[Rfam]
Nucleotides: 076
Stems, first nucleotide, its partner, number of pairs: 015044004021076006028040001048065006
Number, partner (000 for none) and nucleotide at each position: 001000a002000g003000u004000g005000u006000u007000u008000a009000u010000g011000a012000u013000a014000a015044g016043g017042c018041c019000a020000u021076a022075g023074c024073g025072g026071a027000c028040g029000c030000a031000u032000u033000c034000a035000c036000a037000g038000c039000a040028u041018g042017g043016c044015c045000u046000g047000u048065c049064a050063g051062a052061u053060u054000c055000u056000a057000a058000c059000a060053a061052a062051u063050c064049u065048g066000a067000g068000a069000a070000u071026u072025c073024u074023g075022c076021u
This 76-nucleotide sequence from Alligator mississippiensis belongs to the Rfam family "Mammalian CPEB3 ribozyme". The base pairs follow the family's consensus structure, which is taken from published work. On this family, see Salehi-Ashtiani et al., Science 2006: "A genomewide search for ribozymes reveals an HDV-like sequence in the human CPEB3 gene". Rfam links the family to the GO term RNA nuclease activity. About the family: The mammalian CPEB3 ribozyme is a self cleaving RNA located in the second intron of the CPEB3 gene which belongs to a family of genes regulating messenger RNA polyadenylation.